Overview: Shown here is a 69-nucleotide sequence, a member of the family "Transposase-2 RNA". By type it is a small RNA. Pairs were carried over by alignment from the consensus structure, which is taken from published work. Rfam's curators put it in the seed alignment.
[Rfam]
RNA sequence: GAAGUGCGAACCAAGCUGCGGCGACAACCGCGUAAGACUUGGAGCGGACGGCCGCAAGACCGUCCUGCA
Numbered sequence: 001g002a003a004g005u006g007c008g009a010a011c012c013a014a015g016c017u018g019c020g021g022c023g024a025c026a027a028c029c030g031c032g033u034a035a036g037a038c039u040u041g042g043a044g045c046g047g048a049c050g051g052c053c054g055c056a057a058g059a060c061c062g063u064c065c066u067g068c069a
Base pairs, nucleotide, nucleotide: 011042012041013040014039015038018031019030020029021028046065047064048063049062050061051060053058